[Rfam]
RNA sequence: UGCUGUGAUGAUAUAGCUUCUAUCUUAUAGUGUUCAGUGACAGUUGCUUGCUGUCAGCAUGCUGGCACUGUUGAACUGAAGAUACUUGACCCUGAGCA
Dot-bracket structure: (((.................(.((...(((((....(((((((.......))))).....))...))))).......)).)..............)))
RNA: Small nucleolar RNA SNORD16